[Rfam]
The family of this 129-nucleotide RNA sequence from Nannospalax galili is "Small nucleolar RNA SNORA38". The family has 25 seed sequences and 628 matches in Rfam 15.1. Taxonomically the source falls in Nannospalax (Eukaryota, Metazoa, Bilateria, Theria). From the family's description: ACA38 is a member of the H/ACA class of snoRNA that guide the sites of modification of uridines to pseudouridines.
Nucleotides: 129
Base pairs, nucleotide, nucleotide: 002055003054005052006051015040016039017038018037019036022028023027068121069120071119090106092104093103094102
Number, partner (000 for none) and nucleotide at each position: 001000a002055c003054c004000c005052c006051c007000c008000a009000a010000a011000g012000g013000c014000a015040u016039g017038u018037u019036u020000u021000u022028g023027g024000u025000u026000c027023u028022c029000u030000g031000u032000c033000c034000a035000u036019g037018g038017a039016c040015a041000c042000a043000u044000a045000a046000g047000a048000a049000u050000u051006g052005g053000a054003g055002g056000c057000a058000a059000a060000a061000a062000a063000g064000u065000g066000u067000u068121g069120a070000u071119u072000u073000g074000g075000c076000u077000a078000u079000g080000u081000c082000u083000g084000g085000g086000g087000c088000c089000a090106g091000c092104u093103u094102g095000c096000u097000c098000c099000a100000c101000a102094c103093a104092g105000a106090c107000c108000c109000a110000a111000g112000g113000u114000c115000a116000a117000c118000c119071a120069u121068c122000c123000c124000a125000c126000a127000u128000a129000g